[Rfam]
RNA sequence: UGAUGGCUGUUCCUCUCAAUGCUUGGAGCUUGGGAUUUUAGUCCAUCAUAUAUCUAAGCUGACUUGUAUUCACUCAGGGCACCAUGGGGAUGGGUUGGUUGUCCGUUAGUGCCUUCUGAUUUUUGUGGGGUCAAACAAUU
Number, nucleotide and partner (000 for none) at each position: 001u048002g047003a046004u045005g044006g043007c000008u041009g000010u000011u000012c000013c000014u035015c034016u033017c032018a031019a000020u000021g029022c028023u027024u000025g000026g000027a023028g022029c021030u000031u018032g017033g016034g015035a014036u000037u000038u000039u000040a000041g008042u000043c006044c005045a004046u003047c002048a001049u000050a000051u000052a000053u000054c000055u000056a000057a000058g000059c000060u000061g132062a131063c130064u129065u128066g000067u000068a000069u000070u000071c000072a000073c000074u119075c118076a117077g116078g115079g112080c111081a110082c109083c000084a000085u000086g000087g000088g104089g103090a102091u101092g100093g000094g000095u000096u000097g000098g000099u000100u092101g091102u090103c089104c088105g000106u000107u000108a000109g082110u081111g080112c079113c000114u000115u078116c077117u076118g075119a074120u000121u000122u000123u000124u000125g000126u000127g000128g065129g064130g063131u062132c061133a000134a000135a000136c000137a000138a000139u000140u000

Record summary: Shown here is a 140-nucleotide RNA sequence from Sousa chinensis, a member of the family "Small nucleolar RNA SNORA79". The organism belongs to Sousa, within Eukaryota. Pairs were carried over by alignment from the consensus structure, which was predicted with RNAalifold. Rfam classes the family as an H/ACA-box small nucleolar RNA. Rfam 15.1 lists 944 matches to the family in 375 species. ACA65 (SNORA79) is a member of the H/ACA class of snoRNAs that guide the sites of modification of uridines to pseudouridines. This snoRNA was identified by computational screening and its expression in mouse experimentally verified by Northern blot and primer extension analysis.